[Rfam]
RNA sequence: CUCCCCGAAAUAGCUUUAGGGCUAGCCUCGCAACGUAAGUGGCGGAGGUAGAGCACUGGAUGAGCUAGGGCUCUCACAAGGGUACCAAACUCAACCAAACUCCGAAUGCCGUCAACUGGAAUUGCGGGAGUCAGACUGUGGGGGCUAAGCUCCAUGGUCGAGAGGGAAACAGCCCAGACCACCAGCUAAGGUCCUGGAGUGCAGGCUAAGUGGGAAAGGAUGUCAGAUUACUUAGACAACCAGGAGGUUGGCUUAGAGGCAGCCAUCCUUUAAAGAGUGCGUAACAGCUCACUGGUCAAGUGUUCUGGCGCCGAUAAUGUAACGGGGCUCAAGCCUGCCACCGACGCUGUGGGAUUUCGUUCGCUUCGGCGAAUGGAUUCGGUAGGGGAGCAUUCUGCAAUCAGUGAAGCUGGACGGUGACGACCGGUGGAGAGUGCAGAAGCGAUUAU
Number, nucleotide and partner (000 for none) at each position: 001c390002u389003c388004c387005c386006c385007g000008a000009a000010a000011u024012a023013g022014c021015u020016u000017u000018a000019g000020g015021g014022c013023u012024a011025g000026c130027c128028u127029c126030g125031c124032a123033a122034c000035g000036u121037a000038a117039g116040u114041g113042g112043c111044g110045g109046a000047g000048g000049u000050a000051g103052a101053g100054c000055a000056c000057u097058g096059g095060a000061u093062g092063a091064g090065c000066u000067a000068g086069g085070g083071c082072u081073c080074u079075c000076a000077c000078a000079a074080g073081g072082g071083u070084a000085c069086c068087a000088a000089a000090c064091u063092c062093a061094a000095c059096c058097a057098a000099a000100c053101u052102c000103c051104g000105a000106a000107u000108g000109c045110c044111g043112u042113c041114a040115a000116c039117u038118g000119g000120a000121a036122u033123u032124g031125c030126g029127g028128g027129a000130g026131u000132c000133a000134g159135a158136c157137u156138g155139u154140g153141g152142g151143g150144g000145c000146u000147a000148a000149g000150c143151u142152c141153c140154a139155u138156g137157g136158u135159c134160g000161a000162g000163a000164g175165g174166g173167a000168a000169a000170c000171a000172g000173c166174c165175c164176a000177g000178a000179c352180c351181a350182c349183c000184a348185g347186c346187u000188a000189a000190g342191g341192u340193c000194c000195u000196g000197g000198a000199g339200u000201g338202c337203a336204g335205g334206c333207u000208a000209a000210g000211u000212g000213g000214g000215a000216a000217a000218g312219g311220a000221u000222g309223u308224c307225a306226g305227a304228u000229u302230a301231c300232u000233u000234a000235g000236a000237c000238a000239a296240c295241c294242a293243g292244g000245a269246g268247g267248u000249u000250g264251g263252c262253u000254u000255a000256g000257a000258g000259g000260c000261a000262g252263c251264c250265a000266u000267c247268c246269u245270u274271u000272a000273a000274a270275g290276a000277g000278u000279g288280c287281g000282u000283a000284a000285c000286a000287g280288c279289u000290c275291a000292c243293u242294g241295g240296u239297c000298a000299a000300g231301u230302g229303u000304u227305c226306u225307g224308g223309c222310g000311c219312c218313g000314a000315u000316a000317a000318u000319g000320u000321a000322a000323c000324g000325g000326g000327g000328c000329u000330c000331a000332a000333g206334c205335c204336u203337g202338c201339c199340a192341c191342c190343g000344a000345c000346g186347c185348u184349g182350u181351g180352g179353g380354a379355u000356u377357u376358c375359g374360u373361u372362c371363g370364c000365u000366u000367c000368g000369g000370c363371g362372a361373a360374u359375g358376g357377a356378u000379u354380c353381g000382g000383u000384a000385g006386g005387g004388g003389a002390g001391c444392a000393u441394u440395c439396u438397g437398c436399a435400a000401u433402c432403a000404g000405u000406g000407a000408a000409g428410c427411u426412g425413g424414a000415c422416g421417g000418u000419g000420a000421c416422g415423a000424c413425c412426g411427g410428u409429g000430g000431a000432g402433a401434g000435u399436g398437c397438a396439g395440a394441a393442g000443c000444g391445a000446u000447u000448a000449u000

The family of this 449-nucleotide part of an RNA from Methylomirabilis oxygeniifera is "Bacterial large subunit ribosomal RNA". Taxonomically the source falls in Methylomirabilis (SeqCode) (Bacteria, Bacteria candidate phyla, Methylomirabilia (SeqCode), Methylomirabilales (SeqCode)). Rfam's curators put it in the seed alignment. The literature on the family includes a 2002 paper in BMC Bioinformatics by Cannone et al., "The comparative RNA web (CRW) site: an online database of comparative sequence and structure information for ribosomal, intron, and other RNAs".